The family of this 334-nucleotide RNA from Halocalculus aciditolerans is "Archaeal RNase P". NCBI's taxonomy places the organism under Archaea, Methanobacteriati, Methanobacteriota, Halobacteria, Halocalculus. The literature on the family includes a 1998 paper in Annu Rev Biochem by Frank and Pace, "Ribonuclease P: unity and diversity in a tRNA processing ribozyme". It is annotated as a ribozyme. From the family's description: Ribonuclease P (RNase P) is a ubiquitous endoribonuclease, found in archaea, bacteria and eukarya as well as chloroplasts and mitochondria. Its best characterised activity is the generation of mature 5'-ends of tRNAs by cleaving the 5'-leader elements of precursor-tRNAs. Cellular RNase Ps are ribonucleoproteins.

[Rfam]
RNA sequence: GGCAGAGGGAGUCCGGCCACCGCGGCCCACAGCGGCACGCGAGGAAAGUCCCCCCACCCGCCGAGCAGGCGACCGGACGCAAGUCCGGGGCCGGAGACGACCGGCACUGGAACAGAGACGACACGUCCUCCUCCGACCGAUGACGCGCGCGAACCGACCCGCGAGGGAAGGGAGCUAACCCGCUUAGGUUGAACGGGGAGGGAUCGAUGGAACGGCCAAUCCCCGCCGGUGCAAGCCCGCGCGCGAAGGUAGCUCGGCCACCCCGUUUUCGGGGCGCGCGUGGGCGCUCAGCCGAAUGCCGGACCGAACAGAAGGGGGCUUACUCCCCUCAGCC
Numbered sequence: 001g002g003c004a005g006a007g008g009g010a011g012u013c014c015g016g017c018c019a020c021c022g023c024g025g026c027c028c029a030c031a032g033c034g035g036c037a038c039g040c041g042a043g044g045a046a047a048g049u050c051c052c053c054c055c056a057c058c059c060g061c062c063g064a065g066c067a068g069g070c071g072a073c074c075g076g077a078c079g080c081a082a083g084u085c086c087g088g089g090g091c092c093g094g095a096g097a098c099g100a101c102c103g104g105c106a107c108u109g110g111a112a113c114a115g116a117g118a119c120g121a122c123a124c125g126u127c128c129u130c131c132u133c134c135g136a137c138c139g140a141u142g143a144c145g146c147g148c149g150c151g152a153a154c155c156g157a158c159c160c161g162c163g164a165g166g167g168a169a170g171g172g173a174g175c176u177a178a179c180c181c182g183c184u185u186a187g188g189u190u191g192a193a194c195g196g197g198g199a200g201g202g203a204u205c206g207a208u209g210g211a212a213c214g215g216c217c218a219a220u221c222c223c224c225g226c227c228g229g230u231g232c233a234a235g236c237c238c239g240c241g242c243g244c245g246a247a248g249g250u251a252g253c254u255c256g257g258c259c260a261c262c263c264c265g266u267u268u269u270c271g272g273g274g275c276g277c278g279c280g281u282g283g284g285c286g287c288u289c290a291g292c293c294g295a296a297u298g299c300c301g302g303a304c305c306g307a308a309c310a311g312a313a314g315g316g317g318g319c320u321u322a323c324u325c326c327c328c329u330c331a332g333c334c
Base pairs, nucleotide, nucleotide: 001334002333003332005330006329007328008327009326010324011323012303013302014301015300016299017298021041022040023039024038046321047320048319050318051317052316053315054314055231056230057229058228062256063255064254065253068227069226070225071224073088074087075086076085077084089102090101092099093098103222104221108218109217110216124206125205127201128200129199130198131197132196133195145183146182235285236284237283238282239279240278241277242276243275